[Rfam]
RNA: Burkholderia sRNA Bp1_Cand684_SIPHT
RNA sequence: AAGAAAGUGACUGCCGCCCCGCACAGGGGCAACGCUUAUAGACCACUAAGAAAACGGGAUCCGGCGACAACCCAAGCGAACCCAAAAACCACCUACGCGGCCAGCGACUUCCUC
Number, nucleotide and partner (000 for none) at each position: 001a000002a000003g000004a000005a000006a000007g000008u000009g000010a000011c076012u075013g000014c000015c000016g030017c029018c028019c027020c026021g000022c000023a000024c000025a000026g020027g019028g018029g017030c016031a000032a000033c000034g000035c000036u000037u000038a000039u000040a000041g000042a000043c000044c000045a000046c000047u000048a000049a000050g000051a000052a000053a000054a000055c000056g000057g000058g068059a000060u067061c066062c000063g000064g000065c000066g061067a060068c058069a000070a000071c000072c000073c000074a000075a012076g011077c000078g000079a000080a000081c000082c000083c000084a000085a000086a000087a000088a000089c000090c000091a000092c000093c000094u000095a000096c106097g105098c104099g000100g000101c000102c000103a000104g098105c097106g096107a000108c000109u000110u000111c000112c000113u000114c000